Annotation
Rfam assigns this 63-nucleotide RNA sequence from Ethanoligenens harbinense to the family "GP20-b RNA". The source organism's lineage runs through Bacteria, Bacillati, Oscillospiraceae, Ethanoligenens and Ethanoligenens harbinense. The base pairs follow the family's consensus structure, which is taken from published work. Rfam classes the family as a cis-regulatory element.
RNA sequence: CGACCGGCCCGAAGUCGUAAAACUACGGGGCCGCAGCCGAUGCAACCGGCGUAAAAAAGCGUA
Numbered sequence: 001c002g003a004c005c006g007g008c009c010c011g012a013a014g015u016c017g018u019a020a021a022a023c024u025a026c027g028g029g030g031c032c033g034c035a036g037c038c039g040a041u042g043c044a045a046c047c048g049g050c051g052u053a054a055a056a057a058a059g060c061g062u063a
Stems, first nucleotide, its partner, number of pairs: 001017004009028003013024001036050004